Rfam assigns this 33-nucleotide RNA from Tepidibacillus sp. HK-1 to the family "L31-Firmicutes ribosomal protein leader". On this family, see Eckert and Weinberg, BMC Microbiol 2020: "Discovery of 20 novel ribosomal leader candidates in bacteria and archaea".
RNA sequence: CUCUGAUUCGCAAAUGAAUCAGGGCAGAAAGAG
Numbered sequence: 001c002u003c004u005g006a007u008u009c010g011c012a013a014a015u016g017a018a019u020c021a022g023g024g025c026a027g028a029a030a031g032a033g
Stems, first nucleotide, its partner, number of pairs: 001024008